[Rfam]
RNA sequence: AAAUAAAGGGGCAAAACUGUCGUAAGGCGGUGACGCAAAGCCACGGGUCCCAAGGGAGGGACAGCCGGGCUGCAGACA
Numbered sequence: 001a002a003a004u005a006a007a008g009g010g011g012c013a014a015a016a017c018u019g020u021c022g023u024a025a026g027g028c029g030g031u032g033a034c035g036c037a038a039a040g041c042c043a044c045g046g047g048u049c050c051c052a053a054g055g056g057a058g059g060g061a062c063a064g065c066c067g068g069g070c071u072g073c074a075g076a077c078a
Stems, first nucleotide, its partner, number of pairs: 004074001011036002016031006034064001039071004044067003047062003
RNA: c-di-GMP-I-GGC riboswitch aptamer
Organism: Blautia pseudococcoides